[Rfam]
RNA sequence: GGCGAUGUAGCUCAGGUGGUUAGAGCAUACGGCUCAUAUCCGUAGUGUCGGGGGUUCGAAUCCCUCCAUCGCCA
Numbered sequence: 001g002g003c004g005a006u007g008u009a010g011c012u013c014a015g016g017u018g019g020u021u022a023g024a025g026c027a028u029a030c031g032g033c034u035c036a037u038a039u040c041c042g043u044a045g046u047g048u049c050g051g052g053g054g055u056u057c058g059a060a061u062c063c064c065u066c067c068a069u070c071g072c073c074a
Base pairs, nucleotide, nucleotide: 001073002072003071004070005069006068007067010026011025012024013023028044029043030042031041032040050066051065052064053063054062
Record summary
Shown here is a 74-nucleotide RNA sequence from Sulfidibacter corallicola, a member of the family "tRNA". The organism belongs to Sulfidibacter, within Bacteria. Transfer RNA (tRNA) molecules are approximately 80 nucleotides in length.